[Rfam]
RNA sequence: GCGGAAGGCUGGAUGAUCGCGGUGCUGGCAACAGUGUCGAGGAAAGUCCGGACUCCAAGAAGAUACGGUGCCGGGUAACGCCCGGGCGGGGCAACCCGACGGAAAGCGCCACAGAAAAUAGACCGCCGCUCAGACAGGUCGGGCAACCGAAACCAUCACGGGCGGUAAGGGUGAAACGGUGGAGUAAGAGCCCACCGCGCCGCUGGUAACAGGGGCGGCAUGGCAAGCCCUACCGGGAGCAAUGCCAAAUAGGGACCGCGCGUUCGCAAGGACGGGGCCACUUCUGCCCCAGCAGGUUCGGGUUGGCAGCUAUAGCUUUGUUGGCAACAACAAGGUCAGAGGAAUGGUCAUCCAUGGCUGUAGGCUUGCCUGCAGCCGGGACAGAACCCGGCUUACAGGCCUUCCGCGCAU
Numbered sequence: 001g002c003g004g005a006a007g008g009c010u011g012g013a014u015g016a017u018c019g020c021g022g023u024g025c026u027g028g029c030a031a032c033a034g035u036g037u038c039g040a041g042g043a044a045a046g047u048c049c050g051g052a053c054u055c056c057a058a059g060a061a062g063a064u065a066c067g068g069u070g071c072c073g074g075g076u077a078a079c080g081c082c083c084g085g086g087c088g089g090g091g092c093a094a095c096c097c098g099a100c101g102g103a104a105a106g107c108g109c110c111a112c113a114g115a116a117a118a119u120a121g122a123c124c125g126c127c128g129c130u131c132a133g134a135c136a137g138g139u140c141g142g143g144c145a146a147c148c149g150a151a152a153c154c155a156u157c158a159c160g161g162g163c164g165g166u167a168a169g170g171g172u173g174a175a176a177c178g179g180u181g182g183a184g185u186a187a188g189a190g191c192c193c194a195c196c197g198c199g200c201c202g203c204u205g206g207u208a209a210c211a212g213g214g215g216c217g218g219c220a221u222g223g224c225a226a227g228c229c230c231u232a233c234c235g236g237g238a239g240c241a242a243u244g245c246c247a248a249a250u251a252g253g254g255a256c257c258g259c260g261c262g263u264u265c266g267c268a269a270g271g272a273c274g275g276g277g278c279c280a281c282u283u284c285u286g287c288c289c290c291a292g293c294a295g296g297u298u299c300g301g302g303u304u305g306g307c308a309g310c311u312a313u314a315g316c317u318u319u320g321u322u323g324g325c326a327a328c329a330a331c332a333a334g335g336u337c338a339g340a341g342g343a344a345u346g347g348u349c350a351u352c353c354a355u356g357g358c359u360g361u362a363g364g365c366u367u368g369c370c371u372g373c374a375g376c377c378g379g380g381a382c383a384g385a386a387c388c389c390g391g392c393u394u395a396c397a398g399g400c401c402u403u404c405c406g407c408g409c410a411u
Stems, first nucleotide, its partner, number of pairs: 001407010011396001012352007020039008044394003048391004053239004061283002064280001066235005071085005086100001087098004101230002106228002108224003123170002125166007178196005197219001198217004203212003243308004253299005274290005316335008
This 411-nucleotide RNA from Sulfitobacter sp. SK012 belongs to the Rfam family "Bacterial RNase P class A".
It scores 286 bits against the family's covariance model.
The base pairs follow the family's consensus structure, which is taken from published work.
It is annotated as a ribozyme.
Gene Ontology terms of the family: tRNA processing, dimeric ribonuclease P complex and ribonuclease P activity.
NCBI's taxonomy places the organism under Bacteria, Pseudomonadota, Alphaproteobacteria, Rhodobacterales, Sulfitobacter.